[Rfam]
RNA sequence: UCUGCGGGCCGGGCCCCUCUGGCGACAUGGAUUUCCCCCUUGAUCCAGUCGCGAUGUCGGACCGCAUCG
Numbered sequence: 001u002c003u004g005c006g007g008g009c010c011g012g013g014c015c016c017c018u019c020u021g022g023c024g025a026c027a028u029g030g031a032u033u034u035c036c037c038c039c040u041u042g043a044u045c046c047a048g049u050c051g052c053g054a055u056g057u058c059g060g061a062c063c064g065c066a067u068c069g
Stems, first nucleotide, its partner, number of pairs: 006063002009060004022052005029046005
RNA: terC RNA
Organism: Sphingobium sp. TCM1